A member of the RNA family "Small nucleolar RNA R64/Z200 family" from Ipomoea nil, 91 nucleotides long.
Nucleotides: 091
Base pairs, nucleotide, nucleotide: 002090003089004088005087006086007085049056050055
Number, partner (000 for none) and nucleotide at each position: 001000c002090u003089u004088c005087u006086g007085c008000u009000g010000u011000g012000a013000u014000g015000a016000a017000u018000c019000a020000u021000g022000a023000a024000u025000a026000c027000a028000a029000u030000u031000c032000a033000c034000a035000u036000g037000u038000c039000a040000g041000a042000c043000u044000u045000c046000a047000g048000a049056g050055a051000c052000u053000a054000g055050u056049c057000u058000a059000u060000g061000a062000g063000a064000a065000g066000a067000a068000a069000c070000u071000u072000u073000c074000a075000u076000g077000u078000u079000u080000a081000c082000u083000g084000a085007g086006c087005a088004g089003a090002a091000c
The family's consensus secondary structure was predicted with PFOLD. A reference for the family is Marker et al. (2002), "Experimental RNomics: identification of 140 candidates for small non-messenger RNAs in the plant Arabidopsis thaliana", Curr Biol.